[Rfam]
RNA sequence: CGGGAUGUGAUGAUCCUUUCCCCAAAUGAUCGACGGUGAAUACACUGUGCAUUUUUCUUUGUCUCCUCAGAUUCGAGGAGGAAGAUUCAAGCCAGCGGUUCUGAUCUCC
Number, nucleotide and partner (000 for none) at each position: 001c000002g108003g107004g106005a105006u000007g000008u000009g000010a000011u000012g000013a000014u000015c000016c000017u000018u000019u000020c000021c000022c000023c000024a000025a000026a000027u000028g000029a000030u000031c000032g000033a000034c000035g000036g000037u000038g000039a000040a000041u000042a000043c000044a000045c000046u000047g000048u000049g000050c000051a000052u000053u000054u000055u000056u000057c000058u000059u000060u000061g000062u000063c000064u000065c000066c000067u000068c000069a000070g000071a000072u000073u000074c000075g000076a000077g000078g000079a000080g000081g000082a000083a000084g000085a000086u000087u000088c000089a000090a000091g000092c000093c000094a000095g000096c000097g000098g000099u000100u000101c000102u000103g000104a000105u005106c004107u003108c002109c000
Description: Small nucleolar RNA Z103: a 109-nucleotide sequence from Musa balbisiana. It scores 70 bits against the family's covariance model. Taxonomically the source falls in Musa (Eukaryota, Streptophyta, Embryophyta, Musaceae). Its family is annotated with RNA processing and nucleolus in the Gene Ontology. The family's RNA type in Rfam is C/D-box small nucleolar RNA. A reference for the family is Chen et al. (2003), "The high diversity of snoRNAs in plants: identification and comparative study of 120 snoRNA genes from Oryza sativa", Nucleic Acids Res.